[Rfam]
RNA sequence: AAAGCCGUAUGCGACUGGCGAAAAGAGUGGAUAACCACAAGGGAGCAUGCGGUCGGAAUCUUGCCGUUCGCCUGGGUAAAAGUA
Numbered sequence: 001a002a003a004g005c006c007g008u009a010u011g012c013g014a015c016u017g018g019c020g021a022a023a024a025g026a027g028u029g030g031a032u033a034a035c036c037a038c039a040a041g042g043g044a045g046c047a048u049g050c051g052g053u054c055g056g057a058a059u060c061u062u063g064c065c066g067u068u069c070g071c072c073u074g075g076g077u078a079a080a081a082g083u084a
Stems, first nucleotide, its partner, number of pairs: 004053009015042002017072005027038004061079005
ZMP/ZTP riboswitch aptamer (pfl RNA motif): an 84-nucleotide RNA sequence from Paenibacillus tyrphae. Lineage of the source: Bacteria > Bacilli > Caryophanales > Paenibacillaceae > Paenibacillus. Rfam links the family to the GO terms one-carbon metabolic process and regulation of purine nucleotide biosynthetic process.